[Rfam]
RNA sequence: AGCCCUCUCGCGGGAGAGACCGGCCGAAGAAGCCGGCGCCGAAGGCGCAACCGCCCCGGAAACGCUCAGGCAACAGGACCGCGGGAGACGU
Numbered sequence: 001a002g003c004c005c006u007c008u009c010g011c012g013g014g015a016g017a018g019a020c021c022g023g024c025c026g027a028a029g030a031a032g033c034c035g036g037c038g039c040c041g042a043a044g045g046c047g048c049a050a051c052c053g054c055c056c057c058g059g060a061a062a063c064g065c066u067c068a069g070g071c072a073a074c075a076g077g078a079c080c081g082c083g084g085g086a087g088a089c090g091u
Stems, first nucleotide, its partner, number of pairs: 006086008020036004038071003041067002045065003051059002

Rfam assigns this 91-nucleotide RNA sequence from Marinicauda algicola to the family "Glycine riboswitch aptamer".
It scores 70 bits against the family's covariance model.